[Rfam]
RNA sequence: AGCAUCGUGGUUCGUAACCAUCCCACGUAAAAAAACUAGGAGGAA
Numbered sequence: 001a002g003c004a005u006c007g008u009g010g011u012u013c014g015u016a017a018c019c020a021u022c023c024c025a026c027g028u029a030a031a032a033a034a035a036c037u038a039g040g041a042g043g044a045a
Stems, first nucleotide, its partner, number of pairs: 006027005015038002